[Rfam]
Rfam assigns this 82-nucleotide sequence from Bradyrhizobium sp. BTAi1 to the family "chrB-a RNA". The base pairs follow the family's consensus structure, which is taken from published work. It is one of the family's seed sequences. It is annotated as a cis-regulatory element.
RNA sequence: GACAUGGGGACCUCGCGAUCUCCCCACGAGGCGACAUGCCCAAGUAUCGCGUCCCGUCAUUUUGACACGAGGACGCAACAUG
Numbered sequence: 001g002a003c004a005u006g007g008g009g010a011c012c013u014c015g016c017g018a019u020c021u022c023c024c025c026a027c028g029a030g031g032c033g034a035c036a037u038g039c040c041c042a043a044g045u046a047u048c049g050c051g052u053c054c055c056g057u058c059a060u061u062u063u064g065a066c067a068c069g070a071g072g073a074c075g076c077a078a079c080a081u082g
Stems, first nucleotide, its partner, number of pairs: 005026006049076006